The family of this 270-nucleotide sequence from Lates calcarifer is "Small Cajal body specific RNA 6".
Rfam classes the family as a small Cajal body RNA.
The match comes from Rfam's covariance-model search (113 bits).
The family's consensus secondary structure is taken from published work.
The source organism's lineage runs through Eukaryota, Deuterostomia, Euteleostomi, Neoteleostei and Lates.
U88 is small Cajal body specific RNA (scaRNA). scaRNAs are a novel class of small nuclear RNAs which localise to the Cajal bodies. U88 is found associated with both fibrillarin and Gar1p and co-localises with coilin in Cajal bodies.
[Rfam]
Nucleotides: 270
Stems, first nucleotide, its partner, number of pairs: 001270004037249004042232003046228001048226002060218004064128007086113007094104001136196003140192002151177005161169001
Number, partner (000 for none) and nucleotide at each position: 001270g002269g003268u004267c005000a006000a007000u008000g009000a010000c011000g012000a013000a014000c015000a016000g017000u018000a019000a020000a021000a022000g023000g024000u025000c026000u027000g028000a029000u030000u031000a032000c033000c034000c035000a036000c037249g038248a039247u040246c041000c042232u043231c044230u045000c046228c047000u048226g049225c050000u051000g052000c053000c054000c055000u056000c057000u058000g059000g060218c061217u062216c063215c064128c065127a066126g067125c068124a069123g070122c071000c072000c073000c074000u075000g076000c077000u078000c079000u080000c081000u082000g083000c084000u085000c086113c087112c088111a089110u090109c091108a092107u093000g094104c095000u096000c097000u098000a099000g100000u101000g102000a103000u104094g105000c106000a107092g108091u109090g110089a111088u112087g113086g114000u115000u116000c117000c118000a119000g120000g121000a122070g123069c124068u125067g126066c127065u128064g129000a130000c131000a132000g133000a134000c135000a136196g137195g138194a139000a140192g141191u142000g143000a144000c145000a146000u147000c148000a149000c150000a151177g152176a153175g154174u155173c156000u157000g158000u159000a160000c161169a162000g163000a164000g165000a166000u167000c168000c169161u170000a171000u172000u173155g174154g175153c176152u177151c178000a179000g180000a181000g182000u183000g184000a185000u186000g187000a188000c189000u190000g191141a192140c193000a194138u195137c196136c197000a198000a199000c200000a201000g202000a203000a204000c205000u206000a207000a208000u209000c210000a211000g212000c213000a214000c215063g216062g217061a218060g219000c220000g221000u222000c223000a224000g225049g226048c227000u228046g229000a230044g231043g232042a233000u234000g235000a236000g237000g238000a239000g240000g241000g242000a243000g244000c245000u246040g247039a248038u249037c250000u251000c252000a253000a254000g255000u256000u257000u258000u259000c260000a261000a262000c263000c264000u265000g266000a267004g268003a269002c270001c